[Rfam]
RNA sequence: UAACCCUGCUUGUGAAAGUAGGCUGAGCGUACAGAAGUCAGCAGAAGCUAUAGUGCGCUCUGUGUUGCAACACGCAGAGGAAGGGC
Numbered sequence: 001u002a003a004c005c006c007u008g009c010u011u012g013u014g015a016a017a018g019u020a021g022g023c024u025g026a027g028c029g030u031a032c033a034g035a036a037g038u039c040a041g042c043a044g045a046a047g048c049u050a051u052a053g054u055g056c057g058c059u060c061u062g063u064g065u066u067g068c069a070a071c072a073c074g075c076a077g078a079g080g081a082a083g084g085g086c
Stems, first nucleotide, its partner, number of pairs: 001025002005022007038045002047086003058079006
A member of the RNA family "Group II catalytic intron D1-D4-1" from Paenibacillus baekrokdamisoli, 86 nucleotides long. Lineage of the source: Bacteria > Bacillati > Bacillota > Caryophanales > Paenibacillus. It scores 54 bits against the family's covariance model. Its family is annotated with Group II intron splicing in the Gene Ontology. The base pairs follow the family's consensus structure.